A member of the RNA family "tRNA" from Taenia asiatica, 73 nucleotides long. It scores 50 bits against the family's covariance model. Rfam classes the family as a transfer RNA.
RNA sequence: ACCCGUGUGGGCUAAUGGAUAGGGCGUCUGCCUCCUAAGUAGAAGGGUGCGGGUUUGAGUCCCGCUGCGGGUG
Dot-bracket structure: (((((((..(.((........)).).(((((.......))))).....(((((.......)))))))))))).